Annotation
Rfam assigns this 179-nucleotide RNA from Thalassoporum mexicanum to the family "Ribosomal protein L10 leader". Rfam's curators write: This family is a putative r-protein leader autoregulatory structure found in B. subtilis and other low-GC Gram-positive bacteria. It is located in the 5' untranslated regions of mRNAs encoding ribosomal proteins L10 and L12 (rplJ-rplL). A Rho-independent transcription terminator structure that is probably involved in regulation is included at the 3' end. Rfam classes the family as a cis-regulatory leader. Rfam links the family to the GO term regulation of gene expression. A search with the family's covariance model found it, with a score of 45 bits.
[Rfam]
RNA sequence: CCCUACAACCAAAUAAAACUGUAGACAGUAGGUGUCUGUUACUGGUCUUAAUUAGAAGUCUGAUCAAGAUUUCGCACAGAUUAGCAGCAAGACUUAAUUUCCUGCCGAGGUUGUUAACGAGGGAGUUAUGCUCUCCUUGACCUCUACCUGUUGUCGGUUAGGGGUCAUUGUUUUGGCGC
Numbered sequence: 001c002c003c004u005a006c007a008a009c010c011a012a013a014u015a016a017a018a019c020u021g022u023a024g025a026c027a028g029u030a031g032g033u034g035u036c037u038g039u040u041a042c043u044g045g046u047c048u049u050a051a052u053u054a055g056a057a058g059u060c061u062g063a064u065c066a067a068g069a070u071u072u073c074g075c076a077c078a079g080a081u082u083a084g085c086a087g088c089a090a091g092a093c094u095u096a097a098u099u100u101c102c103u104g105c106c107g108a109g110g111u112u113g114u115u116a117a118c119g120a121g122g123g124a125g126u127u128a129u130g131c132u133c134u135c136c137u138u139g140a141c142c143u144c145u146a147c148c149u150g151u152u153g154u155c156g157g158u159u160a161g162g163g164g165u166c167a168u169u170g171u172u173u174u175g176g177c178g179c
Base pairs, nucleotide, nucleotide: 028105029104030103031102032101034093035092036091141164142163143162144161145160146159148157149156150155